[Rfam]
RNA sequence: UUGCCCUCUUAAGUCUGGCAGUGUCUUAAGUGGCCAACACGGAGGGGUAUAAAAUCACUCUCUCAAACCCAGAGGUGAGGUUGAAACUCAUCUUUGGAUCAUGUUGAGAGGAACACAG
Numbered sequence: 001u002u003g004c005c006c007u008c009u010u011a012a013g014u015c016u017g018g019c020a021g022u023g024u025c026u027u028a029a030g031u032g033g034c035c036a037a038c039a040c041g042g043a044g045g046g047g048u049a050u051a052a053a054a055u056c057a058c059u060c061u062c063u064c065a066a067a068c069c070c071a072g073a074g075g076u077g078a079g080g081u082u083g084a085a086a087c088u089c090a091u092c093u094u095u096g097g098a099u100c101a102u103g104u105u106g107a108g109a110g111g112a113a114c115a116c117a118g
Base pairs, nucleotide, nucleotide: 002049003048004047005046006045007044009042010041016036017035019030058110059109060108061107062106069097070096071095072094073093074092075091077089078088079087081086

Background
The record is a 118-nucleotide RNA from Bucco capensis, which matches "Small nucleolar RNA SNORA26" in Rfam. A search with the family's covariance model found it, with a score of 82 bits. The organism belongs to Bucco, within Eukaryota. The family's consensus secondary structure was predicted with RNAalifold. The family's RNA type in Rfam is H/ACA-box small nucleolar RNA. Gene Ontology terms of the family: RNA processing and nucleolus.